[Rfam]
RNA sequence: ACUGUGGAGUGUACAAGAAUUUACGAGUAGAUAGAUAUUUUUUAUAUCAUCAAAAGUAUACACGAUGAAGCAGUAA
Numbered sequence: 001a002c003u004g005u006g007g008a009g010u011g012u013a014c015a016a017g018a019a020u021u022u023a024c025g026a027g028u029a030g031a032u033a034g035a036u037a038u039u040u041u042u043u044a045u046a047u048c049a050u051c052a053a054a055a056g057u058a059u060a061c062a063c064g065a066u067g068a069a070g071c072a073g074u075a076a
Base pairs, nucleotide, nucleotide: 001074002073003072004071005070009063010062011061012060013059022058023057024056030051031050032049036044
Dot-bracket structure: (((((...(((((........(((.....(((...(.......)....)))....))))))))......)))))..

The family of this 76-nucleotide sequence from Firmicutes bacterium CAG:227 is "RAGATH-18 RNA". The family's consensus secondary structure is taken from published work. By type it is a small RNA. Rfam describes the family as follows. Actinobacteria, Firmicutes, Fusobacteria, Thermotogae (1 example).